[Rfam]
RNA sequence: GAUUCGGACUUAUGCGGUAUUAACGCCCAAACCUUGUCAGGGUCGGAAGGCAGCAGCAAUACGGGAUGCUUGGUACAGGCGUAAUAUCCGAGUCACU
Numbered sequence: 001g002a003u004u005c006g007g008a009c010u011u012a013u014g015c016g017g018u019a020u021u022a023a024c025g026c027c028c029a030a031a032c033c034u035u036g037u038c039a040g041g042g043u044c045g046g047a048a049g050g051c052a053g054c055a056g057c058a059a060u061a062c063g064g065g066a067u068g069c070u071u072g073g074u075a076c077a078g079g080c081g082u083a084a085u086a087u088c089c090g091a092g093u094c095a096c097u
Stems, first nucleotide, its partner, number of pairs: 004091005010084005017076006026065003034059004042051003
Dot-bracket structure: ...(((((.(((((..((((((...(((.....((((....(((....)))....))))...))).....))))))...)))))..)))))......
This 97-nucleotide RNA from Chondrocystis sp. NIES-4102 belongs to the Rfam family "Bacterial small signal recognition particle RNA". It is annotated as a non-coding RNA gene. On this family, see Rosenblad et al., Nucleic Acids Res 2003: "SRPDB: Signal Recognition Particle Database". The base pairs follow the family's consensus structure, which is taken from published work. The match comes from Rfam's covariance-model search (60 bits).